[Rfam]
RNA sequence: CCUGCGACAGGACGGAAAGACCCCGUGGAGCUUUACUGCAGUUUGGCAUUGGAUUUCGAUGCUGCAUGUACAGGAUAGGUGGGAGGCUUGGAAGAUGGAACGCAAGUUUCGUUGGAGCCGACGUUGGGAUACCACCCUUGCAGUAUUGAGGUUCUAACCAUGUACCGUGAAUCCGGUACUGGGACACUGUCAGACGGGCAGUUUGACUGGGGCGGUCGCCUCCCAAAGUGUAACGGAGGCGCCCAAAGGUUCCCUCAGCACGGUCGGAAAUCGUGCGAAGAGUGUAAAGGCAAAAGGGAGCUUGAUUGCGAGACAUACAGGUCGAGCAAGGACGAAAGUCGGGCUUAGUGAUCCGGUGGUUCCGAGUGGAAGGGCCAUCGCUCAACGGAUAAAAGCUACCCCGGGGAUAACAGGCUUAUCUCCCCCAAGAGUCCACAUCGACGGGGAGGUUUGGCACCUCGAUGUCGGCUCGUCUCAUCCUGGGGCUGGAGUAGGUCCCAAGGGUUGGGCUGUUCGCCCAUUAAAGAGGCACGCGAGCUGGGUUCAGAACGUCGUGAGACAGUUCGGUCCCUAUCCGUCGCAGGCGCA
Numbered sequence: 001c002c003u004g005c006g007a008c009a010g011g012a013c014g015g016a017a018a019g020a021c022c023c024c025g026u027g028g029a030g031c032u033u034u035a036c037u038g039c040a041g042u043u044u045g046g047c048a049u050u051g052g053a054u055u056u057c058g059a060u061g062c063u064g065c066a067u068g069u070a071c072a073g074g075a076u077a078g079g080u081g082g083g084a085g086g087c088u089u090g091g092a093a094g095a096u097g098g099a100a101c102g103c104a105a106g107u108u109u110c111g112u113u114g115g116a117g118c119c120g121a122c123g124u125u126g127g128g129a130u131a132c133c134a135c136c137c138u139u140g141c142a143g144u145a146u147u148g149a150g151g152u153u154c155u156a157a158c159c160a161u162g163u164a165c166c167g168u169g170a171a172u173c174c175g176g177u178a179c180u181g182g183g184a185c186a187c188u189g190u191c192a193g194a195c196g197g198g199c200a201g202u203u204u205g206a207c208u209g210g211g212g213c214g215g216u217c218g219c220c221u222c223c224c225a226a227a228g229u230g231u232a233a234c235g236g237a238g239g240c241g242c243c244c245a246a247a248g249g250u251u252c253c254c255u256c257a258g259c260a261c262g263g264u265c266g267g268a269a270a271u272c273g274u275g276c277g278a279a280g281a282g283u284g285u286a287a288a289g290g291c292a293a294a295a296g297g298g299a300g301c302u303u304g305a306u307u308g309c310g311a312g313a314c315a316u317a318c319a320g321g322u323c324g325a326g327c328a329a330g331g332a333c334g335a336a337a338g339u340c341g342g343g344c345u346u347a348g349u350g351a352u353c354c355g356g357u358g359g360u361u362c363c364g365a366g367u368g369g370a371a372g373g374g375c376c377a378u379c380g381c382u383c384a385a386c387g388g389a390u391a392a393a394a395g396c397u398a399c400c401c402c403g404g405g406g407a408u409a410a411c412a413g414g415c416u417u418a419u420c421u422c423c424c425c426c427a428a429g430a431g432u433c434c435a436c437a438u439c440g441a442c443g444g445g446g447a448g449g450u451u452u453g454g455c456a457c458c459u460c461g462a463u464g465u466c467g468g469c470u471c472g473u474c475u476c477a478u479c480c481u482g483g484g485g486c487u488g489g490a491g492u493a494g495g496u497c498c499c500a501a502g503g504g505u506u507g508g509g510c511u512g513u514u515c516g517c518c519c520a521u522u523a524a525a526g527a528g529g530c531a532c533g534c535g536a537g538c539u540g541g542g543u544u545c546a547g548a549a550c551g552u553c554g555u556g557a558g559a560c561a562g563u564u565c566g567g568u569c570c571c572u573a574u575c576c577g578u579c580g581c582a583g584g585c586g587c588a
Stems, first nucleotide, its partner, number of pairs: 001584008010576003014571002022405004027401002029397005035202004042194007051154016068137001078136005085119003094113008158182003162179006205217004218240006241386001243343002249301006255281002258276006282291002306329004312323003331340003354380007362373002414455003418452001419449007429439002466541001467539004471533001472530005479504002482499006506520005547565004551560003